Guanidine-I riboswitch aptamer: a 106-nucleotide sequence from Bacillus sp. 1NLA3E.
It scores 85 bits against the family's covariance model.
Lineage of the source: Bacteria > Bacillota > Bacilli > Bacillaceae > Bacillus.

RNA sequence: CAAAAAGCUGUCUAGGGUUCCGAUUAAAGAGUAAUCUUUAAUGACUGGUCCGAGAGGGAGCGUACAGCAACAACUGUAUACACGGAAGGAUAAAAGCCUGGGAGAU
Number, nucleotide and partner (000 for none) at each position: 001c000002a000003a000004a000005a000006a000007g061008c060009u059010g000011u057012c056013u000014a000015g051016g050017g000018u000019u000020c048021c047022g045023a042024u041025u040026a039027a038028a037029g000030a000031g000032u000033a000034a000035u000036c000037u028038u027039u026040a025041a024042u023043g000044a000045c022046u000047g021048g020049u000050c016051c015052g000053a000054g000055a000056g012057g011058g000059a009060g008061c007062g079063u078064a077065c076066a075067g074068c000069a000070a000071c000072a000073a000074c067075u066076g065077u064078a063079u062080a000081c101082a000083c104084g000085g000086a000087a099088g098089g097090a000091u000092a000093a000094a000095a000096g000097c089098c088099u087100g000101g081102g000103a000104g083105a000106u000